[Rfam]
Bacterial RNase P class A: a 418-nucleotide RNA sequence from Rubrobacter xylanophilus. Rfam links the family to the GO terms ribonuclease P activity, tRNA processing and dimeric ribonuclease P complex. Rfam classes the family as a ribozyme. NCBI's taxonomy places the organism under Bacteria, Bacillati, Rubrobacteria, Rubrobacter, Rubrobacter xylanophilus. A search with the family's covariance model found it, with a score of 109 bits.
RNA sequence: CGGGCCGCCCGACCCGCCGCUGUACCCCCUCGCGGGGUGCAGAGGAAAGUCCGGACUCGCGAGGACCGGUUGCCCCGAGGGCAACCGGUCCGGAAAGGCCGCCUGGGCUAAUAACCCAGGGGGCGGCGCGGCGCAAGCCCGCCGUCACGUCAAGUGCAACAGAGAGCAGACCAGCCGAUGGCCGGGGCCUCUGGCUCCGGCACAGGUGAUGGGUGAAAGGGUGGGGUAAGAGCCCACCGGCGGUACCCCGUAAGGGGGCCGGCCAGGUAAACUACCGGUGCGAGCAAGCCAAAUUUGCCCGGGGAGACCCCGGGCAUGGUAGGCGCGGCCCCUCACAGAGGGGCCCGGGGGGCGGCGAGGCCCCCCGGAGAUGGAUGGCGGGAUAGAACAGAAUCCGGCUUACGGGGCGGCCCGGCCG
Numbered sequence: 001c002g003g004g005c006c007g008c009c010c011g012a013c014c015c016g017c018c019g020c021u022g023u024a025c026c027c028c029c030u031c032g033c034g035g036g037g038u039g040c041a042g043a044g045g046a047a048a049g050u051c052c053g054g055a056c057u058c059g060c061g062a063g064g065a066c067c068g069g070u071u072g073c074c075c076c077g078a079g080g081g082c083a084a085c086c087g088g089u090c091c092g093g094a095a096a097g098g099c100c101g102c103c104u105g106g107g108c109u110a111a112u113a114a115c116c117c118a119g120g121g122g123g124c125g126g127c128g129c130g131g132c133g134c135a136a137g138c139c140c141g142c143c144g145u146c147a148c149g150u151c152a153a154g155u156g157c158a159a160c161a162g163a164g165a166g167c168a169g170a171c172c173a174g175c176c177g178a179u180g181g182c183c184g185g186g187g188c189c190u191c192u193g194g195c196u197c198c199g200g201c202a203c204a205g206g207u208g209a210u211g212g213g214u215g216a217a218a219g220g221g222u223g224g225g226g227u228a229a230g231a232g233c234c235c236a237c238c239g240g241c242g243g244u245a246c247c248c249c250g251u252a253a254g255g256g257g258g259c260c261g262g263c264c265a266g267g268u269a270a271a272c273u274a275c276c277g278g279u280g281c282g283a284g285c286a287a288g289c290c291a292a293a294u295u296u297g298c299c300c301g302g303g304g305a306g307a308c309c310c311c312g313g314g315c316a317u318g319g320u321a322g323g324c325g326c327g328g329c330c331c332c333u334c335a336c337a338g339a340g341g342g343g344c345c346c347g348g349g350g351g352g353c354g355g356c357g358a359g360g361c362c363c364c365c366c367g368g369a370g371a372u373g374g375a376u377g378g379c380g381g382g383a384u385a386g387a388a389c390a391g392a393a394u395c396c397g398g399c400u401u402a403c404g405g406g407g408c409g410g411c412c413c414g415g416c417c418g
Base pairs, nucleotide, nucleotide: 001414002413003412004411005410006409007408008407009406010405011403013382014381015380016379017378018377020042021041022040023039024038025037026036027035028034047401048400049399051398052397053396054395055394056284057283058282059281073280075278076277077276079091080090081089082088093148095145097143098142099141149275150274154272155271156268157267171212172211174207175206176205179202180201182199220238221237222236223235224234225233240263241261242260243259244258246257247256248255249254288344289343290342347366348365349364350363351362352361353360